[Rfam]
RNA sequence: AGACCAGGCCUUUCAGGCAUCCUCUCCUAAAAACUUUCAUGGGCUGGCGCUUCGAGCGCCGGCCCUUUUUUUGUCGUCG
Numbered sequence: 001a002g003a004c005c006a007g008g009c010c011u012u013u014c015a016g017g018c019a020u021c022c023u024c025u026c027c028u029a030a031a032a033a034c035u036u037u038c039a040u041g042g043g044c045u046g047g048c049g050c051u052u053c054g055a056g057c058g059c060c061g062g063c064c065c066u067u068u069u070u071u072u073g074u075c076g077u078c079g
Stems, first nucleotide, its partner, number of pairs: 008018004042064009

Shown here is a 79-nucleotide RNA sequence from Sphingomonas rubra, a member of the family "Makes More Granules Regulator RNA (mmgR)". SuhB later renamed mmgR (makes more granules regulator) was a putative non-coding RNA found multiple times in the Agrobacterium tumefaciens genome and related alpha-proteobacteria. The organism belongs to Sphingomonas, within Bacteria. Rfam classes the family as a small RNA.